RNA sequence: CGCUGGCCGAGACAUCACAGACUCGUCGACUUGGGGGAUUUUUGUGAGUCUGAGGGGUAAGCGCCGAGGCCUCUUCCCGGACCUGCUUUUCGCCUUAUCUGCUGCUCCUGACCCCGGGCCGUGUGCCUUCAGAUCAGUAAUCUCGGUGCGCUCGGGUGCUGCGGCCUGUGGCUGGAUUGCCUGUGACGUCCCGCCUGCCUGCUGACCAACUGGCCUACGGCGCCGCCGAGAUGAAGCUGUCCCUGGUGGCUGCGGUGCUGCUG
Numbered sequence: 001c002g003c004u005g006g007c008c009g010a011g012a013c014a015u016c017a018c019a020g021a022c023u024c025g026u027c028g029a030c031u032u033g034g035g036g037g038a039u040u041u042u043u044g045u046g047a048g049u050c051u052g053a054g055g056g057g058u059a060a061g062c063g064c065c066g067a068g069g070c071c072u073c074u075u076c077c078c079g080g081a082c083c084u085g086c087u088u089u090u091c092g093c094c095u096u097a098u099c100u101g102c103u104g105c106u107c108c109u110g111a112c113c114c115c116g117g118g119c120c121g122u123g124u125g126c127c128u129u130c131a132g133a134u135c136a137g138u139a140a141u142c143u144c145g146g147u148g149c150g151c152u153c154g155g156g157u158g159c160u161g162c163g164g165c166c167u168g169u170g171g172c173u174g175g176a177u178u179g180c181c182u183g184u185g186a187c188g189u190c191c192c193g194c195c196u197g198c199c200u201g202c203u204g205a206c207c208a209a210c211u212g213g214c215c216u217a218c219g220g221c222g223c224c225g226c227c228g229a230g231a232u233g234a235a236g237c238u239g240u241c242c243c244u245g246g247u248g249g250c251u252g253c254g255g256u257g258c259u260g261c262u263g
Stems, first nucleotide, its partner, number of pairs: 004252006016158003031117006061107001063105002066102001068100002162174005

Shown here is a 263-nucleotide RNA from Ailuropoda melanoleuca, a member of the family "bip internal ribosome entry site (IRES)". The match comes from Rfam's covariance-model search (143 bits). For this family Rfam cites "Continuous heat shock enhances translational initiation directed by internal ribosomal entry site" (Kim and Jang, Biochem Biophys Res Commun, 2002). Rfam 15.1 lists 234 matches to the family in 131 species. Rfam's curators write: This family represents the bip internal ribosome entry site (IRES). BiP protein expression has been found to be significantly enhanced by the heat shock response due to IRES-dependent translation. Rfam links the family to the GO term ribosome binding.